[Rfam]
Shown here is a 147-nucleotide sequence from Halobacillus yeomjeoni, a member of the family "FMN riboswitch aptamer (RFN element)". The source organism's lineage runs through Bacteria, Bacillota, Bacilli, Bacillaceae and Halobacillus.

Nucleotides: 147
Stems, first nucleotide, its partner, number of pairs: 004144007017029003031127002033116002035067004062114002071091002096112005118130003
Number, partner (000 for none) and nucleotide at each position: 001000u002000u003000c004144c005143a006142u007141c008140u009139u010138c011000g012000g013000g014000g015000c016000a017029g018028g019027g020000u021000g022000a023000a024000a025000u026000u027019c028018c029017c030000g031127a032126c033116c034115g035067a036066c037065g038064g039000u040000g041000a042000u043000g044000a045000a046000u047000g048000a049000g050000a051000a052000a053000u054000c055000a056000u057000u058000c059000u060000a061000a062114g063113u064038c065037c066036g067035u068000g069000a070000c071091c072090c073000g074000u075000g076000a077000g078000g079000u080000u081000u082000a083000u084000c085000c086000a087000a088000a089000c090072g091071g092000u093000g094000g095000a096112c097111c098110u099109g100108g101000u102000g103000a104000a105000a106000a107000u108100c109099c110098g111097g112096g113063a114062c115034c116033g117000a118130c119129a120128g121000u122000g123000a124000a125000a126032g127031u128120c129119u130118g131000g132000a133000u134000g135000g136000g137000a138010g139009a140008a141007g142006a143005u144004g145000u146000c147000g